The family of this 117-nucleotide RNA from Streptomyces shenzhenensis is "Streptomyces-metK RNA". The match comes from Rfam's covariance-model search (109 bits). Rfam classes the family as a small RNA. Pairs were carried over by alignment from the consensus structure, which is taken from published work.

[Rfam]
RNA sequence: CGGGGGAGGGUGACCCUGCGACGGAGUGCGACCGAUAAACUGUUGUCGGACGUCGCCGGGCGCAGCCCCCGCGUCGUCCAUCAAUGAUCAGCCAGCAGCCGCUGCAACCCCAGGGAG
Numbered sequence: 001c002g003g004g005g006g007a008g009g010g011u012g013a014c015c016c017u018g019c020g021a022c023g024g025a026g027u028g029c030g031a032c033c034g035a036u037a038a039a040c041u042g043u044u045g046u047c048g049g050a051c052g053u054c055g056c057c058g059g060g061c062g063c064a065g066c067c068c069c070c071g072c073g074u075c076g077u078c079c080a081u082c083a084a085u086g087a088u089c090a091g092c093c094a095g096c097a098g099c100c101g102c103u104g105c106a107a108c109c110c111c112a113g114g115g116a117g
Stems, first nucleotide, its partner, number of pairs: 048079005056073001057071004093104004